[Rfam]
RNA sequence: CGCUUGGGUGAUGGCUUGUACAAGGACACUAUCUGAGCGAGGUGGUGGUUCUGGAGAGACCAUUCCUUGCAUGAUUACAUCCAGAACUGAGACUGGUAUCUGAGCAAACU
Numbered sequence: 001c002g003c004u005u006g007g008g009u010g011a012u013g014g015c016u017u018g019u020a021c022a023a024g025g026a027c028a029c030u031a032u033c034u035g036a037g038c039g040a041g042g043u044g045g046u047g048g049u050u051c052u053g054g055a056g057a058g059a060c061c062a063u064u065c066c067u068u069g070c071a072u073g074a075u076u077a078c079a080u081c082c083a084g085a086a087c088u089g090a091g092a093c094u095g096g097u098a099u100c101u102g103a104g105c106a107a108a109c110u
Stems, first nucleotide, its partner, number of pairs: 002109001004107003037070006
Dot-bracket structure: .(.(((..............................((((((......................))))))..................................))).).

Annotation
Shown here is a 110-nucleotide RNA sequence from Panicum virgatum, a member of the family "Small nucleolar RNA Z118/Z121/Z120". On this family, see Chen et al., Nucleic Acids Res 2003: "The high diversity of snoRNAs in plants: identification and comparative study of 120 snoRNA genes from Oryza sativa". Rfam classes the family as a C/D-box small nucleolar RNA. The family's consensus secondary structure was predicted with PFOLD. It scores 58 bits against the family's covariance model. NCBI's taxonomy places the organism under Eukaryota, Poales, Panicoideae, Paniceae, Panicum sect. Hiantes.